[Rfam]
Nucleotides: 478
Base pairs, nucleotide, nucleotide: 001478002477003476004475007472008471009470012414013413014412015411016410017409018408021069022068023067024066025065036055037054038053039052040051080462081461082460083459084458091337092336093335094334189201190200191199192198204218205217206216207215208214223331224330225329226328227327228326229325242316243315244314245313246312247311248310415450416449417448418447419445420444421443
Number, partner (000 for none) and nucleotide at each position: 001478g002477c003476u004475g005000a006000u007472c008471a009470a010000a011000g012414a013413c014412c015411g016410c017409g018408g019000u020000a021069c022068u023067u024066u025065g026000c027000u028000a029000c030000a031000c032000a033000c034000a035000a036055g037054a038053g039052a040051c041000u042000u043000u044000g045000c046000c047000c048000c049000u050000u051040g052039u053038c054037u055036c056000u057000a058000c059000c060000u061000c062000u063000c064000g065025c066024a067023a068022a069021g070000g071000g072000g073000c074000u075000a076000a077000g078000g079000u080462c081461c082460g083459a084458g085000u086000a087000a088000a089000c090000u091337g092336u093335c094334c095000c096000u097000c098000a099000a100000u101000g102000u103000c104000g105000g106000u107000g108000c109000c110000u111000c112000g113000u114000g115000c116000c117000c118000u119000u120000c121000a122000u123000u124000g125000g126000c127000u128000a129000c130000g131000u132000c133000c134000u135000g136000u137000c138000g139000a140000g141000u142000c143000a144000g145000a146000a147000g148000c149000g150000c151000c152000c153000g154000c155000a156000a157000g158000g159000g160000u161000u162000c163000g164000u165000g166000g167000a168000c169000g170000g171000c172000a173000g174000a175000c176000g177000g178000c179000a180000g181000u182000g183000a184000c185000a186000a187000g188000a189201g190200c191199u192198c193000g194000a195000g196000a197000c198192g199191a200190g201189c202000c203000g204218a205217u206216c207215g208214g209000u210000c211000a212000u213000c214208u215207c216206g217205a218204u219000a220000c221000g222000c223331g224330u225329g226328c227327g228326c229325u230000a231000c232000c233000a234000g235000a236000a237000a238000u239000a240000c241000c242316u243315c244314u245313g246312g247311u248310c249000u250000u251000u252000g253000c254000u255000u256000c257000u258000u259000u260000a261000c262000u263000u264000u265000c266000c267000c268000a269000a270000a271000g272000a273000c274000g275000c276000u277000u278000c279000u280000c281000a282000a283000a284000a285000g286000g287000a288000a289000g290000a291000c292000g293000a294000g295000g296000g297000a298000g299000a300000u301000a302000a303000g304000a305000a306000g307000u308000c309000u310248g311247a312246u313245c314244a315243g316242a317000u318000u319000g320000g321000c322000a323000a324000u325229g326228g327227u328226g329225c330224a331223u332000a333000g334094g335093g336092a337091c338000u339000g340000c341000c342000c343000u344000u345000u346000g347000c348000u349000u350000g351000u352000u353000u354000c355000a356000c357000g358000a359000u360000u361000g362000c363000g364000a365000u366000g367000u368000c369000g370000u371000c372000c373000c374000a375000u376000c377000c378000a379000u380000c381000g382000g383000g384000a385000c386000a387000g388000c389000g390000a391000a392000g393000c394000g395000g396000c397000u398000u399000g400000a401000g402000u403000g404000c405000a406000a407000u408018c409017c410016g411015c412014g413013g414012u415450g416449u417448g418447c419445u420444a421443c422000c423000c424000a425000c426000a427000c428000a429000u430000g431000c432000u433000c434000u435000u436000c437000c438000a439000g440000a441000g442000c443421g444420u445419g446000c447418g448417c449416a450415u451000a452000a453000c454000u455000c456000a457000a458084u459083u460082c461081g462080g463000a464000c465000u466000a467000c468000u469000c470009u471008u472007g473000a474000u475004c476003a477002g478001c